[Rfam]
The record is a 122-nucleotide RNA, which matches "LOOT RNA" in Rfam. The family's RNA type in Rfam is small RNA. The family's consensus secondary structure is taken from published work.

RNA sequence: GACCUAACCCCUUCAGAUCCCUGGAGGAUAUGGUCGGGAAAACCCAACGAAGAUACUGAACCCCGCGUUCAGCGACUCUUCGUUGGGUCAUAUCGGGAAACCGGUAUGGGGCCGUAAGGCCU
Numbered sequence: 001g002a003c004c005u006a007a008c009c010c011c012u013u014c015a016g017a018u019c020c021c022u023g024g025a026g027g028a029u030a031u032g033g034u035c036g037g038g039a040a041a042a043c044c045c046a047a048c049g050a051a052g053a054u055a056c057u058g059a060a061c062c063c064c065g066c067g068u069u070c071a072g073c074g075a076c077u078c079u080u081c082g083u084u085g086g087g088u089c090a091u092a093u094c095g096g097g098a099a100a101c102c103g104g105u106a107u108g109g110g111g112c113c114g115u116a117a118g119g120c121c122u
Stems, first nucleotide, its partner, number of pairs: 001035004010027006043087011054074001056072006089108008109122005